[Rfam]
RNA sequence: AUAUAGCCAGCUAAGCCAACCAUGCUCUUUUCCCCAUGGGGGCCCAGUGUGCAGUGGCUGCAAACAGCAGCCUCCCUGGUAGUGUAUGCAGCCUGUUGCCUGUACAGAUUGCCCUAAGGGACCUUGGAGAUAACU
Numbered sequence: 001a002u003a004u005a006g007c008c009a010g011c012u013a014a015g016c017c018a019a020c021c022a023u024g025c026u027c028u029u030u031u032c033c034c035c036a037u038g039g040g041g042g043c044c045c046a047g048u049g050u051g052c053a054g055u056g057g058c059u060g061c062a063a064a065c066a067g068c069a070g071c072c073u074c075c076c077u078g079g080u081a082g083u084g085u086a087u088g089c090a091g092c093c094u095g096u097u098g099c100c101u102g103u104a105c106a107g108a109u110u111g112c113c114c115u116a117a118g119g120g121a122c123c124u125u126g127g128a129g130a131u132a133a134c135u
Stems, first nucleotide, its partner, number of pairs: 002053001004051002019048002025042004078123003089111003093107002
Annotation:
Rfam assigns this 135-nucleotide RNA sequence from Bos taurus to the family "Small nucleolar RNA SNORA70". It is annotated as an H/ACA-box small nucleolar RNA. Lineage of the source: Eukaryota > Bilateria > Craniata > Amniota > Bos. The family's consensus secondary structure was predicted with PFOLD. From the family's description: snoRNA U70 seems to be exclusive to mammals and is a member of the H/ACA class of snoRNA which contain H (ANANNA) and ACA box motifs. H/ACA box snoRNAs are involved in the conversion of uridines to pseudouridines (5-ribosyluracil) a constituent of structural RNAs (transfer, ribosomal, small nuclear, and small nucleolar).